[Rfam]
RNA sequence: UAUCUUUGCAGCCGCAUUAAAGAACGAGUCUUUAAUGUGAAGUCAGAAAACCUGACGUACAUAAUAUUCAUUAUCAAAAUAAUUUUGGCAUG
Numbered sequence: 001u002a003u004c005u006u007u008g009c010a011g012c013c014g015c016a017u018u019a020a021a022g023a024a025c026g027a028g029u030c031u032u033u034a035a036u037g038u039g040a041a042g043u044c045a046g047a048a049a050a051c052c053u054g055a056c057g058u059a060c061a062u063a064a065u066a067u068u069c070a071u072u073a074u075c076a077a078a079a080u081a082a083u084u085u086u087g088g089c090a091u092g
Stems, first nucleotide, its partner, number of pairs: 014038009
The record is a 92-nucleotide RNA sequence, which matches "S15-Flavobacteria ribosomal protein leader" in Rfam. The family's RNA type in Rfam is cis-regulatory leader. The sequence is in the family's curated seed alignment.